[Rfam]
A member of the RNA family "U5 spliceosomal RNA" from Volvox africanus, 110 nucleotides long. A reference for the family is Zwieb (1997), "The uRNA database", Nucleic Acids Res. NCBI's taxonomy places the organism under Eukaryota, Viridiplantae, Chlorophyta, core chlorophytes, Volvox.
RNA sequence: CUGCGCUGAGUUACAUACGUCUCUGACAUCUCUUUCGCCUUUUACUAAAGAGAUCAGCGUAUGUAACUCACUGAAGGCGCAUCCAUUAAUCUUUGCAGCGCUAUUGCGCU
Numbered sequence: 001c002u003g004c005g006c007u008g009a010g011u012u013a014c015a016u017a018c019g020u021c022u023c024u025g026a027c028a029u030c031u032c033u034u035u036c037g038c039c040u041u042u043u044a045c046u047a048a049a050g051a052g053a054u055c056a057g058c059g060u061a062u063g064u065a066a067c068u069c070a071c072u073g074a075a076g077g078c079g080c081a082u083c084c085a086u087u088a089a090u091c092u093u094u095g096c097a098g099c100g101c102u103a104u105u106g107c108g109c110u
Base pairs, nucleotide, nucleotide: 003080004079005078006077009068010067011066012065013064014063015062016061017060018059019058028054029053030052031051032050033049034048035047100107101106
Pairs were carried over by alignment from the consensus structure, which is taken from published work. The match comes from Rfam's covariance-model search (74 bits).